This 206-nucleotide RNA from Saccharomonospora glauca belongs to the Rfam family "Actinobacteria sRNA Ms_IGR-5". The source organism's lineage runs through Bacteria, Actinomycetes, Pseudonocardiales, Pseudonocardiaceae and Saccharomonospora glauca.
[Rfam]
RNA sequence: ACACGGGAAAGGAGGUGGUCCAACGGUGAAUAUCCACAGGACUCGUGAGGUGGCUGUCCACUGACAGCACGUACGGGCCACCCAGUCGACGUAUGUGCCUGUCGGUGAAUACCAGGCAGUCACCGGCCCCCAGUGCUUCCGGGAACCGGUCCGUCCCGGACCCGACCGGCUGACGACGGUCGGGAGUCGCACUGGGGGUCUUCUCA
Numbered sequence: 001a002c003a004c005g006g007g008a009a010a011g012g013a014g015g016u017g018g019u020c021c022a023a024c025g026g027u028g029a030a031u032a033u034c035c036a037c038a039g040g041a042c043u044c045g046u047g048a049g050g051u052g053g054c055u056g057u058c059c060a061c062u063g064a065c066a067g068c069a070c071g072u073a074c075g076g077g078c079c080a081c082c083c084a085g086u087c088g089a090c091g092u093a094u095g096u097g098c099c100u101g102u103c104g105g106u107g108a109a110u111a112c113c114a115g116g117c118a119g120u121c122a123c124c125g126g127c128c129c130c131c132a133g134u135g136c137u138u139c140c141g142g143g144a145a146c147c148g149g150u151c152c153g154u155c156c157c158g159g160a161c162c163c164g165a166c167c168g169g170c171u172g173a174c175g176a177c178g179g180u181c182g183g184g185a186g187u188c189g190c191a192c193u194g195g196g197g198g199u200c201u202u203c204u205c206a
Stems, first nucleotide, its partner, number of pairs: 014058006059107007067098004072093003125200012139159006

About this RNA
It is annotated as a small RNA.